A member of the RNA family "Group II catalytic intron D1-D4-4" from Candidatus Scalindua rubra, 140 nucleotides long.
Gene Ontology term of the family: Group II intron splicing.
About the family: Group II introns are found in rRNA, tRNA and mRNA of organelles in fungi, plants and protists, and also in mRNA in bacteria.
Pairs were carried over by alignment from the consensus structure.
The match comes from Rfam's covariance-model search (89 bits).
RNA sequence: UAGUUGGUUAAAGUCCAACCAUGGGAAUUUGGUAGUUCGUCCAUGUAGCUUGAGGGAGGUGUUAGGGGUAACCCGAAACACUUAGUUCCCUGACAAAGGCUCAAUAAGUGAGUCGAGCAAUCUUGCUGGUUGCAGCGAAA
Numbered sequence: 001u002a003g004u005u006g007g008u009u010a011a012a013g014u015c016c017a018a019c020c021a022u023g024g025g026a027a028u029u030u031g032g033u034a035g036u037u038c039g040u041c042c043a044u045g046u047a048g049c050u051u052g053a054g055g056g057a058g059g060u061g062u063u064a065g066g067g068g069u070a071a072c073c074c075g076a077a078a079c080a081c082u083u084a085g086u087u088c089c090c091u092g093a094c095a096a097a098g099g100c101u102c103a104a105u106a107a108g109u110g111a112g113u114c115g116a117g118c119a120a121u122c123u124u125g126c127u128g129g130u131u132g133c134a135g136c137g138a139a140a
Stems, first nucleotide, its partner, number of pairs: 020045005053091005058082006066073002098114006117133003